[Rfam]
RNA sequence: UCUGUCAACGGUAAAUCGCAAGACCGUAAGGUCGAGAAUUUAAGGAGUUGAUAGAUAAGUCAAA
Numbered sequence: 001u002c003u004g005u006c007a008a009c010g011g012u013a014a015a016u017c018g019c020a021a022g023a024c025c026g027u028a029a030g031g032u033c034g035a036g037a038a039u040u041u042a043a044g045g046a047g048u049u050g051a052u053a054g055a056u057a058a059g060u061c062a063a064a
Stems, first nucleotide, its partner, number of pairs: 001055009
A member of the RNA family "Bacillus-plasmid RNA" from Priestia filamentosa, 64 nucleotides long. Rfam classes the family as a small RNA. The source organism's lineage runs through Bacteria, Bacillati, Bacilli, Bacillaceae and Priestia.